Rfam assigns this 59-nucleotide sequence from Gordonia hirsuta to the family "F6 TB sRNA". A reference for the family is Arnvig and Young (2009), "Identification of small RNAs in Mycobacterium tuberculosis", Mol Microbiol. A search with the family's covariance model found it, with a score of 48 bits. The base pairs follow the family's consensus structure, which is taken from published work. By type it is a small RNA.

RNA sequence: GGGAUAGCUCCGGCUGAGCUGCCUGACCCCCGACCCGGCAGCUCGGUCGGAGCUUUACC
Numbered sequence: 001g002g003g004a005u006a007g008c009u010c011c012g013g014c015u016g017a018g019c020u021g022c023c024u025g026a027c028c029c030c031c032g033a034c035c036c037g038g039c040a041g042c043u044c045g046g047u048c049g050g051a052g053c054u055u056u057a058c059c
Stems, first nucleotide, its partner, number of pairs: 002058001004056001007053006014046010